[Rfam]
The record is a 66-nucleotide RNA from Mytilus edulis, which matches "Selenocysteine insertion sequence 1" in Rfam. Lineage of the source: Eukaryota > Spiralia > Mollusca > Autobranchia > Mytilus. About the family: The incorporation of selenocysteine into a protein sequence is directed by an in-frame UGA codon (usually a stop codon) within the coding region of the mRNA. Selenoprotein mRNAs contain a conserved secondary structure in the 3' UTR that is required for the distinction of UGA stop from UGA selenocysteine. The selenocysteine insertion sequence (SECIS) is around 60 nt in length and adopts a hairpin structure which is sufficiently well-defined and conserved to act as a computational screen for selenoprotein genes. A search with the family's covariance model found it, with a score of 37 bits. The literature on the family includes a 2002 paper in Biochimie by Lambert et al., "A survey of metazoan selenocysteine insertion sequences". It is annotated as a cis-regulatory element.

RNA sequence: CAUAUAUGUUAUGAUGGUAUGAUCAUAAAACCCCUAACGUGACGGAUUGUGCCUGAUGUUCAUAUG
Numbered sequence: 001c002a003u004a005u006a007u008g009u010u011a012u013g014a015u016g017g018u019a020u021g022a023u024c025a026u027a028a029a030a031c032c033c034c035u036a037a038c039g040u041g042a043c044g045g046a047u048u049g050u051g052c053c054u055g056a057u058g059u060u061c062a063u064a065u066g
Stems, first nucleotide, its partner, number of pairs: 001066005016053009031041001033039001